[Rfam]
RNA sequence: AUUCUCUAAUUAAACCUCUCUUGUAUAAGCUCGUUAAUUUGGAAUGAGCGUAUCUACAGGCAACCGUAAAUUGCCCCAGGCUACAAGAGGCCAGAUAAGACAC
Numbered sequence: 001a002u003u004c005u006c007u008a009a010u011u012a013a014a015c016c017u018c019u020c021u022u023g024u025a026u027a028a029g030c031u032c033g034u035u036a037a038u039u040u041g042g043a044a045u046g047a048g049c050g051u052a053u054c055u056a057c058a059g060g061c062a063a064c065c066g067u068a069a070a071u072u073g074c075c076c077c078a079g080g081c082u083a084c085a086a087g088a089g090g091c092c093a094g095a096u097a098a099g100a101c102a103c
Stems, first nucleotide, its partner, number of pairs: 018089008029049007059075005